[Rfam]
RNA: TPP riboswitch aptamer (THI element)
RNA sequence: CACUAGCCCCCGGGGUGCGCUCGCGCGCUGAGAUUGCGGAAGAUCCGCUGACCCGUGGAACCUGAUCUGGUUCGUACCAGCGAAGGGAGCAGGGCGACGUCGGCCGU
Numbered sequence: 001c002a003c004u005a006g007c008c009c010c011c012g013g014g015g016u017g018c019g020c021u022c023g024c025g026c027g028c029u030g031a032g033a034u035u036g037c038g039g040a041a042g043a044u045c046c047g048c049u050g051a052c053c054c055g056u057g058g059a060a061c062c063u064g065a066u067c068u069g070g071u072u073c074g075u076a077c078c079a080g081c082g083a084a085g086g087g088a089g090c091a092g093g094g095c096g097a098c099g100u101c102g103g104c105c106g107u
Stems, first nucleotide, its partner, number of pairs: 006095004011055004017028004036048004061086003067080004
Dot-bracket structure: .....((((.((((..((((....)))).......((((.....))))...)))).....(((...((((......))))...))).....))))............